[Rfam]
Nucleotides: 101
Base pairs, nucleotide, nucleotide: 006101007100008099009098
Number, partner (000 for none) and nucleotide at each position: 001000g002000g003000u004000g005000g006101u007100u008099g009098c010000g011000a012000u013000g014000a015000g016000g017000a018000u019000a020000u021000a022000a023000a024000a025000g026000c027000u028000c029000c030000c031000u032000c033000u034000u035000c036000u037000g038000a039000g040000u041000a042000g043000a044000g045000u046000u047000g048000a049000g050000g051000a052000a053000a054000a055000u056000c057000g058000c059000u060000g061000g062000c063000a064000g065000a066000a067000u068000c069000g070000a071000a072000c073000c074000u075000u076000a077000a078000a079000c080000u081000a082000u083000a084000a085000u086000u087000g088000c089000c090000a091000c092000a093000a094000c095000u096000g097000a098009g099008u100007a101006a
Small nucleolar RNA R30/Z108: a 101-nucleotide sequence from Trema andersonii. Gene Ontology terms of the family: RNA processing and nucleolus. Rfam 15.1 lists 626 matches to the family in 219 species. The base pairs follow the family's consensus structure, which was predicted with PFOLD. The family's RNA type in Rfam is C/D-box small nucleolar RNA. snoR30 is a C/D box small nucleolar RNA which acts as a methylation guide for 18S ribosomal RNA in plants.